[Rfam]
RNA sequence: CCGGUCAUCAGGUGGUUGUGAAGCGGAUAUUUGACUCGUAUCACAGCCAGCUUUGAUGAGCGCUA
Numbered sequence: 001c002c003g004g005u006c007a008u009c010a011g012g013u014g015g016u017u018g019u020g021a022a023g024c025g026g027a028u029a030u031u032u033g034a035c036u037c038g039u040a041u042c043a044c045a046g047c048c049a050g051c052u053u054u055g056a057u058g059a060g061c062g063c064u065a
Stems, first nucleotide, its partner, number of pairs: 005059007012051001013049009025039001